[Rfam]
A member of the RNA family "PreQ1-II (pre queuosine) riboswitch aptamer" from Pseudolactococcus hodotermopsidis, 104 nucleotides long. The literature on the family includes a 2008 paper in RNA by Meyer et al., "Confirmation of a second natural preQ1 aptamer class in Streptococcaceae bacteria". Rfam's curators write: preQ1-II riboswitch was first reported for Weinberg et al. 2007 it was recognised in Streptococcaceae and Lactococcus families in 5' untranslated regions of genes of a membrane protein classified as COG4708 or DUF988. Meyers et al. 2008 confirm that preQ1-II recognise the queuosine (Q) precursor pre-queuosine 1 (preQ1). Q is a hyper modified nucleoside present in some anticodons in tRNAs (Try, Asn, Asp and His). Its family is annotated with queuosine biosynthetic process in the Gene Ontology. It scores 58 bits against the family's covariance model.

RNA sequence: UUUGAUAUACUUAAUCUUGCUUAAUUUCAUUUUUAAGCUCUCCGUACUUCCUUACUUUGACGGAGCAUAUUAGACUCGCAAAAUGCGAUAAAGGAGCUUUUUUG
Numbered sequence: 001u002u003u004g005a006u007a008u009a010c011u012u013a014a015u016c017u018u019g020c021u022u023a024a025u026u027u028c029a030u031u032u033u034u035a036a037g038c039u040c041u042c043c044g045u046a047c048u049u050c051c052u053u054a055c056u057u058u059g060a061c062g063g064a065g066c067a068u069a070u071u072a073g074a075c076u077c078g079c080a081a082a083a084u085g086c087g088a089u090a091a092a093g094g095a096g097c098u099u100u101u102u103u104g
Stems, first nucleotide, its partner, number of pairs: 019038005040065006052096002055093003076088004
About this RNA
The family's consensus secondary structure is taken from published work.